Rfam assigns this 75-nucleotide sequence from Mustela putorius to the family "Small nucleolar RNA SNORD113/SNORD114 family".
NCBI's taxonomy places the organism under Eukaryota, Bilateria, Deuterostomia, Eutheria, Mustela putorius.
The family's RNA type in Rfam is C/D-box small nucleolar RNA.
For this family Rfam cites "Identification of tandemly-repeated C/D snoRNA genes at the imprinted human 14q32 domain reminiscent of those at the Prader-Willi/Angelman syndrome region" (Cavaille et al., Hum Mol Genet, 2002).
Its family is annotated with nucleolus and RNA processing in the Gene Ontology.
About the family: The imprinted human domain at 14q32 contains two clusters of tandemly repeated small nucleolar RNAs named 14q(I) and 14q(II) snoRNAs.

RNA sequence: UGGACCAGUGAUGAUGACUGGGGGUCCACGGGUCAUGGAUGGUGAAUCACGGGAGUGUGGGACUCCGAGGGCCAA
Number, nucleotide and partner (000 for none) at each position: 001u000002g073003g072004a000005c070006c069007a000008g000009u000010g000011a000012u000013g000014a000015u000016g000017a000018c000019u000020g000021g000022g000023g000024g000025u000026c000027c000028a000029c000030g000031g000032g000033u000034c000035a000036u000037g000038g000039a000040u000041g000042g000043u000044g000045a000046a000047u000048c000049a000050c000051g000052g000053g000054a000055g000056u000057g000058u000059g000060g000061g000062a000063c000064u000065c000066c000067g000068a000069g006070g005071g000072c003073c002074a000075a000